[Rfam]
RNA sequence: GCCGCAUACUCACCCGUGCACGGCAGGAGCGGGGGACCCACAGGCAGUACCGCCUGUUCCGGUCUCCGGAACAGGCUUGGGGUUAAGCCGUGCGCGAGUACGGCCGGGCAUCUCCAGUCCGAACCCGACAGCUCACCUCGUAGGCGCCGGAGAGGAAUUAG
Number, nucleotide and partner (000 for none) at each position: 001g145002c144003c143004g000005c000006a000007u028008a000009c026010u000011c000012a000013c000014c000015c000016g000017u000018g000019c000020a000021c000022g000023g000024c000025a000026g009027g000028a007029g141030c140031g139032g138033g137034g136035g000036a000037c000038c000039c079040a078041c000042a000043g000044g000045c000046a000047g000048u000049a000050c000051c000052g000053c000054c000055u000056g000057u000058u000059c000060c000061g000062g000063u000064c000065u000066c000067c000068g000069g000070a000071a000072c000073a000074g000075g000076c000077u000078u040079g039080g126081g125082g124083u000084u000085a000086a000087g000088c103089c102090g101091u100092g000093c000094g000095c000096g000097a000098g000099u000100a091101c090102g089103g088104c000105c000106g120107g119108g118109c117110a000111u000112c000113u000114c000115c000116a000117g109118u108119c107120c106121g000122a000123a000124c082125c081126c080127g000128a000129c000130a000131g000132c000133u000134c000135a000136c034137c033138u032139c031140g030141u029142a000143g003144g002145c001146g000147c000148c000149g000150g000151a000152g000153a000154g000155g000156a000157a000158u000159u000160a000161g000
Annotation:
This 161-nucleotide RNA from Streptomyces spongiae belongs to the Rfam family "c-di-AMP riboswitch aptamer (ydaO/yuaA leader)".